This 201-nucleotide RNA sequence from Chunga burmeisteri belongs to the Rfam family "Small nucleolar RNA SNORA74". U19 belongs to the H/ACA class of snoRNAs. snoRNAs bind a number of proteins (including dyskerin, Gar1p and Nop10p in the case of the H/ACA class) to form snoRNP complexes. This class are thought to guide the sites of modification of uridines to pseudouridines by forming direct base pairing interactions with substrate RNAs. Targets may include ribosomal and spliceosomal RNAs but the exact functions of many snoRNAs, including U19, are not confirmed. Co-precipitation of U19 snoRNA with RNase MRP RNA suggests that U19 may be involved in pre-rRNA processing.
[Rfam]
RNA sequence: UCCAGCGGUCGUCGGCUGUCCAGAGCAGUACUGUGCCUGUGAUAGUGUUAUACUGCUGGGAGAUAAAGAUCAGUCAUUUCUUCUGGCUGCUGUUGUCACCAUCGUGAAGACAGCUGAUGCCAAAAAGAAGUGGUACUGUGCUUCCCUGAGUGUGCUAAAGAUUUGCUUUCCCUCUUUAGUGCUAGUCCGGAAGCAUACAUA
Numbered sequence: 001u002c003c004a005g006c007g008g009u010c011g012u013c014g015g016c017u018g019u020c021c022a023g024a025g026c027a028g029u030a031c032u033g034u035g036c037c038u039g040u041g042a043u044a045g046u047g048u049u050a051u052a053c054u055g056c057u058g059g060g061a062g063a064u065a066a067a068g069a070u071c072a073g074u075c076a077u078u079u080c081u082u083c084u085g086g087c088u089g090c091u092g093u094u095g096u097c098a099c100c101a102u103c104g105u106g107a108a109g110a111c112a113g114c115u116g117a118u119g120c121c122a123a124a125a126a127g128a129a130g131u132g133g134u135a136c137u138g139u140g141c142u143u144c145c146c147u148g149a150g151u152g153u154g155c156u157a158a159a160g161a162u163u164u165g166c167u168u169u170c171c172c173u174c175u176u177u178a179g180u181g182c183u184a185g186u187c188c189g190g191a192a193g194c195a196u197a198c199a200u201a
Base pairs, nucleotide, nucleotide: 001060002059003058004057005056006055007054008053009052011051012050015046016045017044018043019042020041021039022038023037068136069134070133071132072131078129079128080127081126082125084122085121086120087119090116092114093113094112095111096110097109138196139195140194141193142192143191144190145189152182153181154180156178157177158176159175160174161173
Its Rfam clan is "SNORA74 clan". For this family Rfam cites "The family of box ACA small nucleolar RNAs is defined by an evolutionarily conserved secondary structure and ubiquitous sequence elements essential for RNA accumulation" (Ganot et al., Genes Dev, 1997). A search with the family's covariance model found it, with a score of 81 bits.